A member of the RNA family "Plastid-rpl16 group II-D1 intron" from Tetracentron sinense, 45 nucleotides long. NCBI's taxonomy places the organism under Eukaryota, Streptophytina, Euphyllophyta, Magnoliopsida, Tetracentron. Rfam 15.1 lists 1,446 matches to the family in 693 species. For this family Rfam cites "Retrograde signaling in plants: A critical review focusing on the GUN pathway and beyond" (Richter et al., Plant Commun, 2023). Rfam describes the family as follows. Plastid-rpl16 is a non-coding RNA (ncRNA) recognised in plastids.
RNA sequence: AAGAGCCCUGAGUCAAUAAAGAUUGAGGAUUGGCUCGGGAACAAA
Number, nucleotide and partner (000 for none) at each position: 001a000002a000003g000004a000005g000006c000007c039008c038009u000010g036011a035012g034013u033014c032015a031016a030017u029018a000019a000020a000021g000022a000023u000024u000025g000026a000027g000028g000029a017030u016031u015032g014033g013034c012035u011036c010037g000038g008039g007040a000041a000042c000043a000044a000045a000